This 142-nucleotide RNA sequence from Echinops telfairi belongs to the Rfam family "Small Cajal body specific RNA 11". Rfam describes the family as follows. scaRNAs are a specific class of small nuclear RNAs which localise to the Cajal bodies and guide the modification of RNA polymerase II transcribed spliceosomal RNAs U1, U2, U4, U5 and U12. Rfam links the family to the GO terms RNA processing, nucleolus and Cajal body. It is one of the family's seed sequences.
RNA sequence: UCGUCCUGGCCCCCGAGUGUCCCUGCUCCCCUGUGCUCAGCUGUGGCAGGGGGGCCUGAGGCAGGACGUACAGCAUCUCCCUCUCAGUUUAGGAGGGCUGUCCUAAGCACGGGGCUGGCUCUUAAAGGCACGAGAGGACAUU
Numbered sequence: 001u002c003g004u005c006c007u008g009g010c011c012c013c014c015g016a017g018u019g020u021c022c023c024u025g026c027u028c029c030c031c032u033g034u035g036c037u038c039a040g041c042u043g044u045g046g047c048a049g050g051g052g053g054g055c056c057u058g059a060g061g062c063a064g065g066a067c068g069u070a071c072a073g074c075a076u077c078u079c080c081c082u083c084u085c086a087g088u089u090u091a092g093g094a095g096g097g098c099u100g101u102c103c104u105a106a107g108c109a110c111g112g113g114g115c116u117g118g119c120u121c122u123u124a125a126a127g128g129c130a131c132g133a134g135a136g137g138a139c140a141u142u
Stems, first nucleotide, its partner, number of pairs: 002068007010061002025055003029051006080137006087129004093123007100115005